[Rfam]
Nucleotides: 075
Base pairs, nucleotide, nucleotide: 015025016024017023032070033069038065039064045058047056048055049054
Number, partner (000 for none) and nucleotide at each position: 001000c002000u003000u004000c005000a006000g007000g008000g009000a010000a011000c012000c013000g014000a015025u016024c017023c018000a019000c020000a021000g022000c023017g024016g025015g026000g027000u028000g029000u030000c031000g032070g033069c034000g035000u036000c037000c038065c039064g040000c041000u042000c043000g044000c045058g046000g047056c048055c049054g050000u051000a052000c053000g054049u055048g056047g057000c058045c059000u060000g061000c062000a063000g064039u065038g066000c067000c068000u069033g070032c071000g072000c073000c074000u075000c